Lysine riboswitch aptamer: a 175-nucleotide RNA from Polycladospora coralii.
Rfam describes the family as follows. Riboswitches are metabolite binding domains within certain messenger RNAs that serve as precision sensors for their corresponding targets. Allosteric rearrangement of mRNA structure is mediated by ligand binding, and this results in modulation of gene expression. This family includes riboswitches that sense lysine in a number of genes involved in lysine metabolism, including lysC.
NCBI's taxonomy places the organism under Bacteria, Bacillati, Caryophanales, Thermoactinomycetaceae, Polycladospora.
The match comes from Rfam's covariance-model search (95 bits).
The family's consensus secondary structure is taken from published work.
RNA sequence: UGAGUGUGUAGAGGUGCGGAAUGAUAUGAGUCCUUUUCUGGAGACUGGCAGUCUGUGAAGGAAAAUAAAAGGAUCUUCCGCCGAAGCGUAGAACAAUGCCAACGGAACUAUGCUGGGUCGGUUUUGAAUAAGAAUCGAACUGCCACAUGAUAAAUUUGUGGAGCGCUCGCAUCAG
Numbered sequence: 001u002g003a004g005u006g007u008g009u010a011g012a013g014g015u016g017c018g019g020a021a022u023g024a025u026a027u028g029a030g031u032c033c034u035u036u037u038c039u040g041g042a043g044a045c046u047g048g049c050a051g052u053c054u055g056u057g058a059a060g061g062a063a064a065a066u067a068a069a070a071g072g073a074u075c076u077u078c079c080g081c082c083g084a085a086g087c088g089u090a091g092a093a094c095a096a097u098g099c100c101a102a103c104g105g106a107a108c109u110a111u112g113c114u115g116g117g118u119c120g121g122u123u124u125u126g127a128a129u130a131a132g133a134a135u136c137g138a139a140c141u142g143c144c145a146c147a148u149g150a151u152a153a154a155u156u157u158g159u160g161g162a163g164c165g166c167u168c169g170c171a172u173c174a175g
Stems, first nucleotide, its partner, number of pairs: 006172004010167002016081006023075003034065006085114007094105001115141002118138008143161005149155001